[Rfam]
RNA sequence: GACACCAUAGCCAAGUGGUUACGGCGACAGAUUAGAAUUCGUUCUACCAUCUGUUUCACUUUGUGAGCGCAGGUUCGAAUCCUGCUGGUGUCG
Numbered sequence: 001g002a003c004a005c006c007a008u009a010g011c012c013a014a015g016u017g018g019u020u021a022c023g024g025c026g027a028c029a030g031a032u033u034a035g036a037a038u039u040c041g042u043u044c045u046a047c048c049a050u051c052u053g054u055u056u057c058a059c060u061u062u063g064u065g066a067g068c069g070c071a072g073g074u075u076c077g078a079a080u081c082c083u084g085c086u087g088g089u090g091u092c093g
Stems, first nucleotide, its partner, number of pairs: 001092007010025003027064005069085005
Shown here is a 93-nucleotide sequence from Coprinopsis cinerea, a member of the family "tRNA".
A search with the family's covariance model found it, with a score of 53 bits.
By type it is a transfer RNA.
Pairs were carried over by alignment from the consensus structure, which is taken from published work.
About the family: Transfer RNA (tRNA) molecules are approximately 80 nucleotides in length.